[Rfam]
RNA sequence: UUUUUGGGAGGGAUAGAAGCUAGGGAAGAGGCAGAGCAUGAGAUGGAUCAAUCAACAAUGUGGAUUAUUGGUGUUGUUGCUCCUCCCAUGCACUGCCUCUUCCCUGGCAUCUUCAAUUCCCUUUCAA
Numbered sequence: 001u002u003u004u005u006g007g008g009a010g011g012g013a014u015a016g017a018a019g020c021u022a023g024g025g026a027a028g029a030g031g032c033a034g035a036g037c038a039u040g041a042g043a044u045g046g047a048u049c050a051a052u053c054a055a056c057a058a059u060g061u062g063g064a065u066u067a068u069u070g071g072u073g074u075u076g077u078u079g080c081u082c083c084u085c086c087c088a089u090g091c092a093c094u095g096c097c098u099c100u101u102c103c104c105u106g107g108c109a110u111c112u113u114c115a116a117u118u119c120c121c122u123u124u125c126a127a
Stems, first nucleotide, its partner, number of pairs: 017110001019108001021106007029098006036091005042086001046082002